RNA sequence: GGUUGUAACUCCGGCGAACUGGAGGCGUUCUGGACAGGGGUUCGAUUCCCCUCACCUCCACCUAAGCGCAGGGCUCGGGCAGUGCUCUUAGGUGGGGGUGCCAUGGCUUCGACAGGGCGAGUGAAGGUAAGCAGGCAACCCGUCAGGCGAUCGACGUUAAUGAAGCAAAUCUCCAAACGCCAACGAUGAGCGUUUCGCACUGGCCGCUUAA
Numbered sequence: 001g002g003u004u005g006u007a008a009c010u011c012c013g014g015c016g017a018a019c020u021g022g023a024g025g026c027g028u029u030c031u032g033g034a035c036a037g038g039g040g041u042u043c044g045a046u047u048c049c050c051c052u053c054a055c056c057u058c059c060a061c062c063u064a065a066g067c068g069c070a071g072g073g074c075u076c077g078g079g080c081a082g083u084g085c086u087c088u089u090a091g092g093u094g095g096g097g098g099u100g101c102c103a104u105g106g107c108u109u110c111g112a113c114a115g116g117g118c119g120a121g122u123g124a125a126g127g128u129a130a131g132c133a134g135g136c137a138a139c140c141c142g143u144c145a146g147g148c149g150a151u152c153g154a155c156g157u158u159a160a161u162g163a164a165g166c167a168a169a170u171c172u173c174c175a176a177a178c179g180c181c182a183a184c185g186a187u188g189a190g191c192g193u194u195u196c197g198c199a200c201u202g203g204c205c206g207c208u209u210a211a
Stems, first nucleotide, its partner, number of pairs: 001140005016128001026119003030115003036052005053100010141156004
Annotation: This 211-nucleotide sequence from Denitratisoma sp. DHT3 belongs to the Rfam family "permuted transfer-messenger RNA". It scores 160 bits against the family's covariance model. From the family's description: Bacterial tmRNA, also known as 10Sa RNA or SsrA, is named for its dual tRNA and mRNA-like properties.